This 86-nucleotide RNA from Alteribacter keqinensis belongs to the Rfam family "BsrC".
RNA sequence: UAUUCUUAGAUAAUGAAAACCCUGCCUCUUUUUCAUCCUUGCGACUCCUGGGUCGCGCCAGUGUAAAAAAGAAAUACUGUUUUCAC
Numbered sequence: 001u002a003u004u005c006u007u008a009g010a011u012a013a014u015g016a017a018a019a020c021c022c023u024g025c026c027u028c029u030u031u032u033u034c035a036u037c038c039u040u041g042c043g044a045c046u047c048c049u050g051g052g053u054c055g056c057g058c059c060a061g062u063g064u065a066a067a068a069a070a071g072a073a074a075u076a077c078u079g080u081u082u083u084c085a086c
Base pairs, nucleotide, nucleotide: 033066035064038061039060040057041056042055043054044053045052046051
The family has 29 seed sequences and 572 matches in Rfam 15.1. The literature on the family includes a 2008 paper in Gene by Saito et al., "Novel small RNA-encoding genes in the intergenic regions of Bacillus subtilis". The source organism's lineage runs through Bacteria, Bacillati, Bacillota, Caryophanales and Alteribacter.